Shown here is a 60-nucleotide RNA sequence from Massilia sp. WF1, a member of the family "Betaproteobacteria toxic small RNA". The source organism's lineage runs through Bacteria, Pseudomonadota, Betaproteobacteria, Burkholderiales and Massilia.
RNA sequence: UGUCUCCUCUAUUCUCCUCCAAGAAUAGAUUCAGCCCGCUCCUGCAGCGGGCUUUUUUUU
Numbered sequence: 001u002g003u004c005u006c007c008u009c010u011a012u013u014c015u016c017c018u019c020c021a022a023g024a025a026u027a028g029a030u031u032c033a034g035c036c037c038g039c040u041c042c043u044g045c046a047g048c049g050g051g052c053u054u055u056u057u058u059u060u
Base pairs, nucleotide, nucleotide: 008029009028010027011026012025013024014023033053034052035051036050037049038048039047040046
Rfam's curators write: Overexpression in amino aid rich medium attenuates growth, suggesting role in repressing amino acid intake and metabolism. Rfam 15.1 lists 951 matches to the family in 508 species.